[Rfam]
RNA: mir-548 microRNA precursor family
Organism: Saimiri boliviensis
RNA sequence: UGUUAGGUUGGUGCAAAAGUAAUUGCAGCUUUUACCUUUACUUUCAAUGGCAAAAGCUGCAAUUACUUUUGCACCAACCUAACA
Numbered sequence: 001u002g003u004u005a006g007g008u009u010g011g012u013g014c015a016a017a018a019g020u021a022a023u024u025g026c027a028g029c030u031u032u033u034a035c036c037u038u039u040a041c042u043u044u045c046a047a048u049g050g051c052a053a054a055a056g057c058u059g060c061a062a063u064u065a066c067u068u069u070u071g072c073a074c075c076a077a078c079c080u081a082a083c084a
Base pairs, nucleotide, nucleotide: 001084002083003082004081005080006079007078008077009076010075011074012073013072014071015070016069017068018067019066020065021064022063023062024061025060026059027058028057029056030055031054032053033052035050036049038047039046
Dot-bracket structure: (((((((((((((((((((((((((((((((((.((.((......)).)).)))))))))))))))))))))))))))))))))